[Rfam]
Rfam assigns this 354-nucleotide RNA from Nitrosococcus oceani to the family "Bacterial RNase P class A". Gene Ontology terms of the family: tRNA processing, ribonuclease P activity and dimeric ribonuclease P complex. It is one of the family's seed sequences. NCBI's taxonomy places the organism under Bacteria, Chromatiales, Chromatiaceae, Nitrosococcus, Nitrosococcus oceani. By type it is a ribozyme.
Nucleotides: 354
Base pairs, nucleotide, nucleotide: 001350002349003348004347005346006345007344008343009342010341011339012319013318014317015316016315017314018313020042021041022040023039024038025037026036027035047337048336049335051334052333053332054331055330056224057223058222059221063256064255065254066253068220069219070218071217072216073087074086075085076084077083088102089100090099091098092097103215104214108213109212110209111208112207125154126153127150128149129148133146134145135144136143137142162180163179164178165177166176167175181204182202183201184200185199186198187196188195189194228276229275230274231273238267239266240265241264242263243262247261248260249259250258251257283302284301285300286299287298288297289296290295
Number, partner (000 for none) and nucleotide at each position: 001350u002349g003348a004347g005346a006345c007344g008343a009342c010341c011339a012319g013318a014317c015316a016315g017314c018313c019000g020042c021041g022040u023039u024038a025037c026036c027035u028000u029000g030000a031000a032000u033000u034000c035027a036026g037025g038024u039023a040022a041021u042020g043000a044000g045000g046000a047337a048336a049335g050000u051334c052333c053332g054331g055330g056224c057223u058222c059221c060000a061000u062000a063256g064255g065254g066253c067000a068220g069219g070218g071217u072216g073087c074086c075085a076084g077083g078000u079000a080000a081000c082000g083077c084076c085075u086074g087073g088102g089100g090099g091098g092097c093000g094000u095000g096000a097092g098091c099090u100089u101000a102088c103215g104214g105000a106000a107000a108213g109212u110209g111208c112207c113000g114000c115000a116000g117000a118000a119000a120000a121000u122000a123000u124000a125154c126153c127150g128149c129148c130000u131000a132000a133146g134145c135144g136143u137142c138000u139000g140000c141000g142137g143136g144135c145134g146133c147000c148129g149128g150127u151000a152000a153126g154125g155000g156000u157000g158000a159000a160000a161000u162180g163179g164178u165177g166176c167175g168000g169000u170000a171000a172000g173000a174000g175167c176166g177165c178164a179163c180162c181204g182202c183201g184200c185199g186198g187196g188195u189194g190000g191000c192000a193000a194189c195188a196187c197000a198186c199185c200184g201183u202182g203000g204181c205000a206000a207112g208111g209110u210000a211000a212109a213108c214104c215103c216072c217071a218070c219069u220068c221059g222058g223057a224056g225000c226000a227000a228276g229275g230274c231273c232000a233000a234000a235000u236000a237000g238267a239266g240265g241264a242263a243262c244000a245000a246000a247261g248260a249259u250258g251257u252000g253066g254065c255064c256063c257251g258250c259249a260248u261247c262243g263242u264241u265240c266239c267238u268000g269000g270000g271000u272000a273231g274230g275229c276228u277000g278000c279000u280000u281000g282000a283302g284301g285300u286299g287298c288297a289296u290295g291000g292000u293000g294000a295290c296289a297288u298287g299286u300285a301284u302283c303000c304000c305000a306000g307000a308000u309000g310000a311000a312000u313018g314017g315016c316015u317014g318013u319012c320000c321000a322000c323000g324000a325000c326000a327000g328000a329000a330055c331054c332053c333052g334051g335049c336048u337047u338000a339011u340000c341010g342009g343008u344007c345006g346005u347004c348003u349002c350001a351000a352000u353000c354000c